[Rfam]
RNA: Magnesium riboswitch aptamer (Magnesium responsive RNA element)
RNA sequence: CUUACCGGAGGCUCCAUGGAUCCCGAUCCCACACCUCUCCUGAACGGGAGAACACGUUCUUUCCGGUAAGCCAGCUUUUGCUGUCUCACCGGUGAUGUGAGGCAGCAACGUCCC
Numbered sequence: 001c002u003u004a005c006c007g008g009a010g011g012c013u014c015c016a017u018g019g020a021u022c023c024c025g026a027u028c029c030c031a032c033a034c035c036u037c038u039c040c041u042g043a044a045c046g047g048g049a050g051a052a053c054a055c056g057u058u059c060u061u062u063c064c065g066g067u068a069a070g071c072c073a074g075c076u077u078u079u080g081c082u083g084u085c086u087c088a089c090c091g092g093u094g095a096u097g098u099g100a101g102g103c104a105g106c107a108a109c110g111u112c113c114c
Stems, first nucleotide, its partner, number of pairs: 001070011017031003036051005080106010